[Rfam]
RNA sequence: UCCCAUCAUCAAGAGAAGGGCUGGCGCCCUCGCCAACCUGCCGAACCGGGCAAGGUGGUUUCCGCAACAGGGAUGCGGCCGGAUGGAACCUCAUAGAGGCAUU
Numbered sequence: 001u002c003c004c005a006u007c008a009u010c011a012a013g014a015g016a017a018g019g020g021c022u023g024g025c026g027c028c029c030u031c032g033c034c035a036a037c038c039u040g041c042c043g044a045a046c047c048g049g050g051c052a053a054g055g056u057g058g059u060u061u062c063c064g065c066a067a068c069a070g071g072g073a074u075g076c077g078g079c080c081g082g083a084u085g086g087a088a089c090c091u092c093a094u095a096g097a098g099g100c101a102u103u
Stems, first nucleotide, its partner, number of pairs: 007075004015031001017030005032059003037055003040051003078100003